[Rfam]
RNA sequence: AAUGGGAGAAUGAUAUAUAAGAUUUUUCCUCCUGAUUUUUAGUGUUCUUAGUUUUAUUUGAAUUUUUUCAUGAGGAAAAAGCUGAAAAUCAGGAGGAAAAAUCUAAUUUUUCAUUCUCUCAUU
Numbered sequence: 001a002a003u004g005g006g007a008g009a010a011u012g013a014u015a016u017a018u019a020a021g022a023u024u025u026u027u028c029c030u031c032c033u034g035a036u037u038u039u040u041a042g043u044g045u046u047c048u049u050a051g052u053u054u055u056a057u058u059u060g061a062a063u064u065u066u067u068u069c070a071u072g073a074g075g076a077a078a079a080a081g082c083u084g085a086a087a088a089u090c091a092g093g094a095g096g097a098a099a100a101a102u103c104u105a106a107u108u109u110u111u112c113a114u115u116c117u118c119u120c121a122u123u
Base pairs, nucleotide, nucleotide: 001123002122003121004120005119006118007117008116009115010114011113012112013111015109017107018106020104021103022102023101024100025099026098027097029095030094031093032092033091034090035089036088037087038086039085041083042082045079046078048076
Dot-bracket structure: (((((((((((((.(.((.((((((((.(((((((((((.((..((.(...........................).))..)).))))))))))).)))))))).)).).)))))))))))))